RNA sequence: AAAGUCAGAACCAUUUGAAUCAAGUCGUGAUUCAAACGGUUCUUAAAAA
Number, nucleotide and partner (000 for none) at each position: 001a000002a000003a000004g000005u045006c000007a043008g042009a041010a040011c039012c038013a000014u036015u035016u034017g033018a032019a031020u030021c029022a028023a000024g000025u000026c000027g000028u022029g021030a020031u019032u018033c017034a016035a015036a014037c000038g012039g011040u010041u009042c008043u007044u000045a005046a000047a000048a000049a000
RNA: Plastid-ccsA-ndhD-1 3UTR RNA